[Rfam]
Shown here is a 183-nucleotide RNA from Rubritalea squalenifaciens, a member of the family "6S / SsrS RNA". It is annotated as a non-coding RNA gene. Pairs were carried over by alignment from the consensus structure, which is taken from published work. The match comes from Rfam's covariance-model search (47 bits).
RNA sequence: CGGUAGCUGCUGUGCGCGUUCGCAAGGGAACGUGCCCAGACCGAUGAUUAUGUUACGGGGGUUACCCCUGGAGGUGAAAUGUCAUGCCUUCCUAGGAAGACAAAGUAGCUGAGAGGACGCCCCCACCUGUUGAGCUUUCGGAUUAGUGGCUCACAGUUCCCAGAACGGCACAGCGGCUUUUAU
Number, nucleotide and partner (000 for none) at each position: 001c000002g181003g180004u000005a178006g177007c176008u175009g174010c173011u172012g171013u170014g169015c168016g000017c167018g166019u165020u000021c000022g000023c000024a000025a000026g000027g000028g000029a000030a000031c000032g000033u000034g150035c149036c148037c146038a144039g143040a000041c141042c140043g000044a000045u000046g000047a000048u000049u000050a000051u000052g000053u000054u000055a000056c000057g124058g123059g122060g000061g120062u119063u000064a000065c116066c115067c000068c000069u113070g000071g000072a110073g109074g000075u107076g000077a000078a000079a000080u000081g101082u100083c000084a000085u000086g000087c096088c095089u000090u000091c000092c000093u000094a000095g088096g087097a000098a000099g000100a082101c081102a000103a000104a000105g000106u000107a075108g000109c073110u072111g000112a000113g069114a000115g066116g065117a000118c000119g062120c061121c000122c059123c058124c057125a000126c000127c000128u000129g000130u000131u000132g000133a000134g000135c000136u000137u000138u000139c000140g042141g041142a000143u039144u038145a000146g037147u000148g036149g035150c034151u000152c000153a000154c000155a000156g000157u000158u000159c000160c000161c000162a000163g000164a000165a019166c018167g017168g015169c014170a013171c012172a011173g010174c009175g008176g007177c006178u005179u000180u003181u002182a000183u000